[Rfam]
This 102-nucleotide RNA from Alicyclobacillus acidoterrestris belongs to the Rfam family "Purine riboswitch aptamer". NCBI's taxonomy places the organism under Bacteria, Bacillati, Bacillota, Bacilli, Alicyclobacillus.
RNA sequence: GUGUGUAAACAGAAUAGUGCUCGUAUAAUCGCGGGAAUAUGGCCCGCAAGUUUCUACCAGGCAACCGAGAAUUGCCUGACUACGAGUGGAAGCGCAUCUAGG
Dot-bracket structure: .................((((((((...(.(((((.......))))).)........(((((((.......)))))))..))))))))..............

A search with the family's covariance model found it, with a score of 86 bits.